[Rfam]
RNA sequence: CUCUUAUCGAGAGUGGUGGAGGGACUGGCCCGAUGAAACCCGGCAGCCGGCACAUUAAGUGCGUCUGGUGCUAAAUCCUGCAGGUGAAACCUGAGAGAUGAGAG
Numbered sequence: 001c002u003c004u005u006a007u008c009g010a011g012a013g014u015g016g017u018g019g020a021g022g023g024a025c026u027g028g029c030c031c032g033a034u035g036a037a038a039c040c041c042g043g044c045a046g047c048c049g050g051c052a053c054a055u056u057a058a059g060u061g062c063g064u065c066u067g068g069u070g071c072u073a074a075a076u077c078c079u080g081c082a083g084g085u086g087a088a089a090c091c092u093g094a095g096a097g098a099u100g101a102g103a104g
Stems, first nucleotide, its partner, number of pairs: 001104008013041001015040003021031003025080001027078002042072004047068002049064001076096001081093005